[Rfam]
RNA sequence: CCGUGCCGGGGUGGGCAGGCCCUGCGGCCAACUAACCCUAAUGGCGGCCGCGCCCCUCACGCUCGCCCGCUGUUUUACUCGCUGACUUUCAGCGGGCAAAGGGAGCGGCCCAGGGGAAGGGGGUGGUGGGGGGGGAAAUAAAAAGAGUUCCGUCCUCAAAAAAAGCCAGCGAUGGGGAUCCACACCCCGGCCCACCCUGGGGUCCCUGACCCUUCUCCGCAACGGGGAUGCUCCCGCCUCCGCCCCUCGUGGAGGCCGCGGUCGGCAGGCUCAGCGCCACUACCGCCGCGAAGAGUUCGUCUCUGUCAGCCUUGGCGGAGGCCGGGAGCAGAGGGCCGGCCCGCCCACCCUGGGCAGCCGGGGGACCCCAGCAGAGCAAAAAGGGGCGGCGCUGCCGGGCGCUGAGCAGCCGCAGCUCCCUGAGACGUGGAGUGCGCGGCCGGCGCCGCCCCGACACCC
Numbered sequence: 001c002c003g004u005g006c007c008g009g010g011g012u013g014g015g016c017a018g019g020c021c022c023u024g025c026g027g028c029c030a031a032c033u034a035a036c037c038c039u040a041a042u043g044g045c046g047g048c049c050g051c052g053c054c055c056c057u058c059a060c061g062c063u064c065g066c067c068c069g070c071u072g073u074u075u076u077a078c079u080c081g082c083u084g085a086c087u088u089u090c091a092g093c094g095g096g097c098a099a100a101g102g103g104a105g106c107g108g109c110c111c112a113g114g115g116g117a118a119g120g121g122g123g124u125g126g127u128g129g130g131g132g133g134g135g136a137a138a139u140a141a142a143a144a145g146a147g148u149u150c151c152g153u154c155c156u157c158a159a160a161a162a163a164a165g166c167c168a169g170c171g172a173u174g175g176g177g178a179u180c181c182a183c184a185c186c187c188c189g190g191c192c193c194a195c196c197c198u199g200g201g202g203u204c205c206c207u208g209a210c211c212c213u214u215c216u217c218c219g220c221a222a223c224g225g226g227g228a229u230g231c232u233c234c235c236g237c238c239u240c241c242g243c244c245c246c247u248c249g250u251g252g253a254g255g256c257c258g259c260g261g262u263c264g265g266c267a268g269g270c271u272c273a274g275c276g277c278c279a280c281u282a283c284c285g286c287c288g289c290g291a292a293g294a295g296u297u298c299g300u301c302u303c304u305g306u307c308a309g310c311c312u313u314g315g316c317g318g319a320g321g322c323c324g325g326g327a328g329c330a331g332a333g334g335g336c337c338g339g340c341c342c343g344c345c346c347a348c349c350c351u352g353g354g355c356a357g358c359c360g361g362g363g364g365a366c367c368c369c370a371g372c373a374g375a376g377c378a379a380a381a382a383g384g385g386g387c388g389g390c391g392c393u394g395c396c397g398g399g400c401g402c403u404g405a406g407c408a409g410c411c412g413c414a415g416c417u418c419c420c421u422g423a424g425a426c427g428u429g430g431a432g433u434g435c436g437c438g439g440c441c442g443g444c445g446c447c448g449c450c451c452c453g454a455c456a457c458c459c
Base pairs, nucleotide, nucleotide: 005191006190007189008188009187010186011185012184013183015181017179020177021176022175023174052106053105055103056102065097066096067095068094069093070092071091072090081170082169083168084167086165087163088162089161197371198370199369200368201367202366203365230329231328232327233326234325235324236323239319240318241317242316243315257290258289259288260287261286263285264284265283268278269277270276292304293303294302295301384451385450386449387448388447389446390445391444392443393442410439411438412437413436417432419430420429
RNA: Vertebrate telomerase RNA